Overview: The family of this 75-nucleotide sequence from Acholeplasma brassicae is "c-di-GMP-I riboswitch aptamer". Rfam links the family to the GO term cyclic-di-GMP binding. The match comes from Rfam's covariance-model search (58 bits).
[Rfam]
RNA sequence: AAAUUAUAUAGGCAAAACUAGAGAAAUCUAGCGACGCAAAGCUAUAGGGCCUGAAAACGGUAGCCAGUUGCACUU
Numbered sequence: 001a002a003a004u005u006a007u008a009u010a011g012g013c014a015a016a017a018c019u020a021g022a023g024a025a026a027u028c029u030a031g032c033g034a035c036g037c038a039a040a041g042c043u044a045u046a047g048g049g050c051c052u053g054a055a056a057a058c059g060g061u062a063g064c065c066a067g068u069u070g071c072a073c074u075u
Base pairs, nucleotide, nucleotide: 012037013036018031019030020029021028022027040069041068042067043066047065048064049061050060051059